[Rfam]
RNA sequence: AGAACGCACAUUAAUAAUUAUCCUUGAGGCCAUGGGAUAAACAAAAACCCUACAAAACCAAAUUAGUACAUCCUAGAAUGGUUCUAACAUGAUUACUAACCUAUGGCUCUAAUACAAGUUGAUGGAAAAACCUG
Numbered sequence: 001a002g003a004a005c006g007c008a009c010a011u012u013a014a015u016a017a018u019u020a021u022c023c024u025u026g027a028g029g030c031c032a033u034g035g036g037a038u039a040a041a042c043a044a045a046a047a048c049c050c051u052a053c054a055a056a057a058c059c060a061a062a063u064u065a066g067u068a069c070a071u072c073c074u075a076g077a078a079u080g081g082u083u084c085u086a087a088c089a090u091g092a093u094u095a096c097u098a099a100c101c102u103a104u105g106g107c108u109c110u111a112a113u114a115c116a117a118g119u120u121g122a123u124g125g126a127a128a129a130a131c132c133u134g
Base pairs, nucleotide, nucleotide: 009124010123011122012121013120017119018118019117025111026110028108029107030106031105032104033103034102035101036100051089056083057082059080060079063076064075065074066073